[Rfam]
RNA sequence: GACGAAAAGGCAAGCAGCGCACAGUAAACGGGGACCAAAGGAGGUCGUUUACUGUGCGCUGUUUGCCUUUUCGUC
Numbered sequence: 001g002a003c004g005a006a007a008a009g010g011c012a013a014g015c016a017g018c019g020c021a022c023a024g025u026a027a028a029c030g031g032g033g034a035c036c037a038a039a040g041g042a043g044g045u046c047g048u049u050u051a052c053u054g055u056g057c058g059c060u061g062u063u064u065g066c067c068u069u070u071u072c073g074u075c
Base pairs, nucleotide, nucleotide: 002074003073004072005071006070008068009067010066011065012064013063014062015061016060017059018058019057020056021055022054023053024052025051026050027049028048029047030046